RNA sequence: UCGAAGUUCUAUCUACAAAUGGAUAAGAUUUUUGUCUUAGUGUAUAUGAAUGAUUGAAGUAAUGGAGUAAUAUCCUAUAUCUUUCUUUAGUUGGAUAUUGCUCCAUU
Number, nucleotide and partner (000 for none) at each position: 001u000002c000003g000004a000005a000006g000007u000008u023009c022010u021011a020012u019013c000014u000015a000016c000017a000018a000019a012020u011021g010022g009023a008024u000025a000026a000027g000028a000029u000030u000031u000032u000033u000034g000035u000036c000037u000038u000039a000040g000041u000042g000043u000044a000045u000046a000047u000048g000049a000050a000051u000052g000053a000054u000055u000056g000057a000058a000059g000060u000061a107062a106063u105064g104065g103066a102067g101068u100069a099070a098071u097072a096073u095074c000075c093076u000077a091078u000079a000080u000081c000082u000083u000084u000085c000086u000087u000088u000089a000090g000091u077092u000093g075094g000095a073096u072097a071098u070099u069100g068101c067102u066103c065104c064105a063106u062107u061
This 107-nucleotide sequence from Phoenix dactylifera belongs to the Rfam family "Plastid-psbA-1 3UTR RNA". The family's RNA type in Rfam is cis-regulatory element. The family is grouped with related families in Rfam's "Plastid-psbA 3UTR RNA clan". The literature on the family includes a 2023 paper in Plant Commun by Richter et al., "Retrograde signaling in plants: A critical review focusing on the GUN pathway and beyond". About the family: Plastid psbA-1 is a non-coding RNA (ncRNA) present in plastids. It was identified in inverted repeat sequences in the 3 prime untranslate region (3UTR) of photosystem II quinone-binding protein (psbA).